Rfam assigns this 114-nucleotide sequence to the family "drum RNA". By type it is a small RNA.
[Rfam]
RNA sequence: AAGGGUUGAAGUAGGGUGUUGUGCCAGAAAGCAGUGCCUUACCAACUUUAUAAGGGUUUAGUAUUUACCACAAUCAGGCUAGAGAGCGAAAACUCUUAAAAGAAAAUGCCGGGA
Numbered sequence: 001a002a003g004g005g006u007u008g009a010a011g012u013a014g015g016g017u018g019u020u021g022u023g024c025c026a027g028a029a030a031g032c033a034g035u036g037c038c039u040u041a042c043c044a045a046c047u048u049u050a051u052a053a054g055g056g057u058u059u060a061g062u063a064u065u066u067a068c069c070a071c072a073a074u075c076a077g078g079c080u081a082g083a084g085a086g087c088g089a090a091a092a093c094u095c096u097u098a099a100a101a102g103a104a105a106a107u108g109c110c111g112g113g114a
Base pairs, nucleotide, nucleotide: 001048002047003046011042012041013040014039015038016037017036018035019034020033021032022031024078025077027075061109062108063107082097083096084095085094
It is one of the family's seed sequences. About the family: Firmicutes, Bacteroidetes (1 example), Proteobacteria (2 examples), Spirochaetes (2 examples).